[Rfam]
RNA sequence: AUACUUACCUGGCAGGGGAGGUACUGUGAUCAUGAAGGUGGUUUUCCCAGGGUGAGGCUUAUCCAUUGCACCCUGGAUGUGCUGACCCCUGUAAUUUCCCCAAAUGGAAACUCAACUGCAUAAUUCGUGGUAGUGGGAGACUGCAUUUACGCUCUCCCCUG
Numbered sequence: 001a002u003a004c005u006u007a008c009c010u011g012g013c014a015g016g017g018g019a020g021g022u023a024c025u026g027u028g029a030u031c032a033u034g035a036a037g038g039u040g041g042u043u044u045u046c047c048c049a050g051g052g053u054g055a056g057g058c059u060u061a062u063c064c065a066u067u068g069c070a071c072c073c074u075g076g077a078u079g080u081g082c083u084g085a086c087c088c089c090u091g092u093a094a095u096u097u098c099c100c101c102a103a104a105u106g107g108a109a110a111c112u113c114a115a116c117u118g119c120a121u122a123a124u125u126c127g128u129g130g131u132a133g134u135g136g137g138a139g140a141c142u143g144c145a146u147u148u149a150c151g152c153u154c155u156c157c158c159c160u161g
Base pairs, nucleotide, nucleotide: 012119013118014117015116016048017047018046019045020044021043023042024041025040026039027038049090050089051088052087054086056083057082058081060079061078062077063076064075092114094112095110096109097108099107100106135160136159137158139156140155143152144151

The record is a 161-nucleotide RNA sequence from Carlito syrichta, which matches "U1 spliceosomal RNA" in Rfam.
NCBI's taxonomy places the organism under Eukaryota, Eutheria, Primates, Haplorrhini, Carlito.
The family is grouped with related families in Rfam's "U1 clan".
A search with the family's covariance model found it, with a score of 136 bits.
The family's consensus secondary structure is taken from published work.
Rfam classes the family as a spliceosomal small nuclear RNA.